[Rfam]
RNA sequence: AUUGGAUCACUGAUGCAUCUGUAGUCUGAAUUAUCUUUUUGUAACUUUGUUGAAGGAAUUGAAGAUGACACAUCUUAUGAGAUCUGGU
Numbered sequence: 001a002u003u004g005g006a007u008c009a010c011u012g013a014u015g016c017a018u019c020u021g022u023a024g025u026c027u028g029a030a031u032u033a034u035c036u037u038u039u040u041g042u043a044a045c046u047u048u049g050u051u052g053a054a055g056g057a058a059u060u061g062a063a064g065a066u067g068a069c070a071c072a073u074c075u076u077a078u079g080a081g082a083u084c085u086g087g088u
Stems, first nucleotide, its partner, number of pairs: 001088007